[Rfam]
Record summary: SAM riboswitch aptamer (S box leader): a 95-nucleotide RNA sequence. The family's consensus secondary structure is taken from published work.

RNA sequence: CAUUUAUCAAGAGUGGCAGAGGGUCAGGCCCUGUGAAGCCCAGCAACCUACAUUUGUAAGGUGCUAAAUCCUGCGGUAUAACCGAAAGAUAAGUU
Numbered sequence: 001c002a003u004u005u006a007u008c009a010a011g012a013g014u015g016g017c018a019g020a021g022g023g024u025c026a027g028g029c030c031c032u033g034u035g036a037a038g039c040c041c042a043g044c045a046a047c048c049u050a051c052a053u054u055u056g057u058a059a060g061g062u063g064c065u066a067a068a069u070c071c072u073g074c075g076g077u078a079u080a081a082c083c084g085a086a087a088g089a090u091a092a093g094u095u
Stems, first nucleotide, its partner, number of pairs: 002094007013041001015040003021031003025073004042065004047061002049058003069087001074084004
Rfam's curators put it in the seed alignment.